Description
The record is a 462-nucleotide part of an RNA, which matches "Bacterial large subunit ribosomal RNA" in Rfam.
RNA sequence: CUCCCCGAAAUGCGUUGAGGCGCAGCAGUUGACUAGACCAUCUAGGGGUAAAGCACCGUUCCGGUGCGGGCUGCGAGAGCGGUACCAAAUCGAGGCAAACUCUGAAUACUAGAUGUAACGUUCAAGUAAAAGGAACGAAGGAAAAGGGUCAACCAGUGAGACGAUGAGGGAUAAGCUUCACCGUCGAGAGGGGAACAGCCCAGAUCACCAGCUAAGGCCCCUAAAUGACCGCUCAGUGGUAAAGGAGGUAGGAGUGCAAAGACAGCCAGGAGGUUUGCCUAGAAGCAGCCACCCUUGAAAGAGUGCGUAAUAGCUCACUGAUCAAGCGCUCUUGCGCCGAAGAUGAGCGGGACUAAGCGGUCUGCCGAAGCUGUGGGAUGUCAAAAAACAUCGGUAGGGGAGCGUUCCGCCCCAGAUGGAAGCACCAGUGCGAGCAGGUGUGGACGAAGCGGAAGCGAGAAU
Numbered sequence: 001c002u003c004c005c006c007g008a009a010a011u012g013c014g015u016u017g018a019g020g021c022g023c024a025g026c027a028g029u030u031g032a033c034u035a036g037a038c039c040a041u042c043u044a045g046g047g048g049u050a051a052a053g054c055a056c057c058g059u060u061c062c063g064g065u066g067c068g069g070g071c072u073g074c075g076a077g078a079g080c081g082g083u084a085c086c087a088a089a090u091c092g093a094g095g096c097a098a099a100c101u102c103u104g105a106a107u108a109c110u111a112g113a114u115g116u117a118a119c120g121u122u123c124a125a126g127u128a129a130a131a132g133g134a135a136c137g138a139a140g141g142a143a144a145a146g147g148g149u150c151a152a153c154c155a156g157u158g159a160g161a162c163g164a165u166g167a168g169g170g171a172u173a174a175g176c177u178u179c180a181c182c183g184u185c186g187a188g189a190g191g192g193g194a195a196c197a198g199c200c201c202a203g204a205u206c207a208c209c210a211g212c213u214a215a216g217g218c219c220c221c222u223a224a225a226u227g228a229c230c231g232c233u234c235a236g237u238g239g240u241a242a243a244g245g246a247g248g249u250a251g252g253a254g255u256g257c258a259a260a261g262a263c264a265g266c267c268a269g270g271a272g273g274u275u276u277g278c279c280u281a282g283a284a285g286c287a288g289c290c291a292c293c294c295u296u297g298a299a300a301g302a303g304u305g306c307g308u309a310a311u312a313g314c315u316c317a318c319u320g321a322u323c324a325a326g327c328g329c330u331c332u333u334g335c336g337c338c339g340a341a342g343a344u345g346a347g348c349g350g351g352a353c354u355a356a357g358c359g360g361u362c363u364g365c366c367g368a369a370g371c372u373g374u375g376g377g378a379u380g381u382c383a384a385a386a387a388a389c390a391u392c393g394g395u396a397g398g399g400g401a402g403c404g405u406u407c408c409g410c411c412c413c414a415g416a417u418g419g420a421a422g423c424a425c426c427a428g429u430g431c432g433a434g435c436a437g438g439u440g441u442g443g444a445c446g447a448a449g450c451g452g453a454a455g456c457g458a459g460a461a462u
Stems, first nucleotide, its partner, number of pairs: 001402006011024005026156001028153006039115007051103001052101002058096002062092003068086002070083005160185004165180005190201003205376004210372003216366003225363001227362006244338002248335010265322001267320003271295003277289002296300001301316001305314002377392005403457001405454006415445001422441005428435002

The match comes from Rfam's covariance-model search (2499 bits).